Group I catalytic intron: a 543-nucleotide sequence from Diversispora epigaea. Its family is annotated with Group I intron splicing in the Gene Ontology. The match comes from Rfam's covariance-model search (84 bits).
Nucleotides: 543
Base pairs, nucleotide, nucleotide: 050362051361052360053359054358056356057355061288062287063286064285065284066283072278073277074276075275289342290341294337295336296335297334302330303329304328346522348521349520350519351518352517364508365507366506368504369503370502371501372500373499374498528541529540530539531538532537
Number, partner (000 for none) and nucleotide at each position: 001000u002000c003000g004000u005000a006000a007000a008000c009000u010000u011000a012000c013000c014000g015000a016000g017000c018000g019000u020000a021000a022000u023000c024000u025000u026000u027000u028000u029000g030000u031000g032000g033000c034000g035000a036000a037000c038000u039000a040000c041000a042000c043000g044000u045000u046000g047000c048000g049000a050362g051361a052360u053359u054358g055000u056356c057355a058000a059000a060000u061288u062287g063286c064285c065284g066283g067000a068000a069000c070000g071000c072278c073277c074276u075275u076000u077000c078000u079000g080000c081000g082000a083000a084000g085000c086000u087000a088000c089000c090000g091000c092000g093000a094000u095000c096000c097000c098000g099000g100000g101000g102000a103000a104000a105000c106000u107000u108000a109000g110000g111000a112000u113000g114000c115000a116000g117000c118000a119000g120000c121000a122000u123000g124000u125000c126000u127000a128000a129000c130000u131000g132000a133000c134000a135000u136000g137000u138000g139000g140000a141000u142000g143000g144000u145000a146000a147000a148000a149000a150000u151000g152000c153000u154000u155000a156000g157000c158000a159000g160000a161000c162000a163000c164000u165000c166000u167000a168000g169000a170000u171000a172000a173000u174000a175000g176000g177000a178000a179000g180000a181000u182000u183000u184000a185000g186000u187000u188000g189000u190000u191000u192000g193000a194000a195000u196000a197000u198000c199000c200000a201000a202000a203000a204000g205000a206000u207000a208000u209000c210000a211000g212000a213000a214000c215000u216000a217000g218000c219000c220000u221000g222000g223000g224000u225000u226000u227000u228000a229000u230000u231000a232000a233000c234000c235000u236000a237000u238000a239000g240000g241000u242000a243000u244000g245000a246000c247000a248000a249000c250000u251000a252000u253000u254000a255000g256000a257000g258000u259000g260000g261000a262000u263000c264000a265000g266000u267000a268000a269000u270000g271000g272000u273000u274000a275075a276074a277073g278072g279000a280000u281000u282000a283066u284065c285064g286063g287062c288061a289342g290341c291000c292000a293000a294337g295336u296335c297334c298000u299000a300000a301000g302330g303329a304328a305000a306000a307000u308000c309000a310000c311000u312000a313000g314000u315000u316000a317000u318000c319000u320000a321000g322000u323000u324000u325000a326000c327000c328304u329303u330302c331000u332000a333000u334297g335296g336295a337294u338000g339000c340000a341290g342289u343000u344000c345000a346522c347000a348521g349520a350519c351518u352517a353000a354000a355057u356056g357000g358054c359053a360052a361051u362050c363000g364508g365507g366506u367000u368504u369503c370502g371501a372500g373499u374498g375000g376000g377000a378000a379000c380000a381000a382000c383000c384000u385000u386000g387000g388000g389000u390000u391000u392000a393000a394000c395000c396000u397000u398000u399000g400000g401000c402000u403000c404000u405000g406000g407000u408000a409000c410000c411000u412000u413000a414000g415000u416000g417000g418000u419000g420000g421000c422000u423000g424000u425000u426000g427000a428000g429000g430000a431000c432000a433000c434000g435000u436000g437000g438000g439000g440000u441000a442000a443000c444000u445000c446000a447000c448000g449000u450000u451000g452000c453000a454000c455000g456000c457000u458000g459000a460000a461000a462000a463000g464000g465000c466000c467000u468000a469000c470000a471000c472000u473000c474000c475000g476000u477000g478000a479000u480000g481000g482000g483000g484000g485000g486000a487000g488000u489000c490000a491000a492000a493000c494000a495000c496000c497000a498374c499373g500372u501371u502370c503369g504368a505000u506366a507365c508364c509000u510000u511000a512000a513000g514000a515000u516000a517352u518351a519350g520349u521348c522346g523000a524000a525000a526000g527000a528541u529540a530539c531538c532537c533000g534000u535000a536000a537532g538531g539530g540529u541528g542000g543000a